This 92-nucleotide RNA from Candidatus Brocadia fulgida belongs to the Rfam family "Selenocysteine transfer RNA". The match comes from Rfam's covariance-model search (59 bits). Pairs were carried over by alignment from the consensus structure, which is taken from published work. On this family, see Mizutani and Goto, FEBS Lett 2000: "Eukaryotic selenocysteine tRNA has the 9/4 secondary structure". Taxonomically the source falls in Candidatus Brocadia (Bacteria, Pseudomonadati, Candidatus Brocadiales, Candidatus Brocadiaceae).
[Rfam]
RNA sequence: GGGAGUGCAUGUCGCUGGUGUCGGCGACGGACUUCAAAUCCGGUCUGUCCCGCUUCUAGCGGGAUAGGUGGGUUCGAUUCCCACACGCUCCC
Numbered sequence: 001g002g003g004a005g006u007g008c009a010u011g012u013c014g015c016u017g018g019u020g021u022c023g024g025c026g027a028c029g030g031a032c033u034u035c036a037a038a039u040c041c042g043g044u045c046u047g048u049c050c051c052g053c054u055u056c057u058a059g060c061g062g063g064a065u066a067g068g069u070g071g072g073u074u075c076g077a078u079u080c081c082c083a084c085a086c087g088c089u090c091c092c
Stems, first nucleotide, its partner, number of pairs: 001092007011025004015020001026044001028042004046066005069083004